The record is a 116-nucleotide sequence from Brassica carinata, which matches "MIR9563 microRNA precursor family" in Rfam. The source organism's lineage runs through Eukaryota, Streptophytina, Tracheophyta, Mesangiospermae and Brassica.
RNA sequence: GGAAUAUAAUAACUCGUCUUUUAAUUUUUAACUAAAAAAGCUAAGAACCGGUUUUUAAAUAAGAACCGAUUCUUAACUUUUUUAGUUAAAAGUUAAGAGACGGGUUCUUAUAUUCC
Numbered sequence: 001g002g003a004a005u006a007u008a009a010u011a012a013c014u015c016g017u018c019u020u021u022u023a024a025u026u027u028u029u030a031a032c033u034a035a036a037a038a039a040g041c042u043a044a045g046a047a048c049c050g051g052u053u054u055u056u057a058a059a060u061a062a063g064a065a066c067c068g069a070u071u072c073u074u075a076a077c078u079u080u081u082u083u084a085g086u087u088a089a090a091a092g093u094u095a096a097g098a099g100a101c102g103g104g105u106u107c108u109u110a111u112a113u114u115c116c
Stems, first nucleotide, its partner, number of pairs: 001116009011106029042075006